[Rfam]
RNA sequence: CUAGUGAGCAUAAGCGGUUAGUAUAUGGUGCUGUGCAAGCACAUAUGCGGGACAUUGCUCUGCAG
Numbered sequence: 001c002u003a004g005u006g007a008g009c010a011u012a013a014g015c016g017g018u019u020a021g022u023a024u025a026u027g028g029u030g031c032u033g034u035g036c037a038a039g040c041a042c043a044u045a046u047g048c049g050g051g052a053c054a055u056u057g058c059u060c061u062g063c064a065g
Base pairs, nucleotide, nucleotide: 006060007059008058009057010056015050018052019051021048022047023046024045025044026043027042
Rfam assigns this 65-nucleotide RNA sequence from Acinetobacter populi to the family "Xanthine riboswitch aptamer (NMT1 RNA)". On this family, see Yu and Breaker, RNA 2020: "A bacterial riboswitch class senses xanthine and uric acid to regulate genes associated with purine oxidation". The organism belongs to Acinetobacter, within Bacteria. Pairs were carried over by alignment from the consensus structure, which is taken from published work.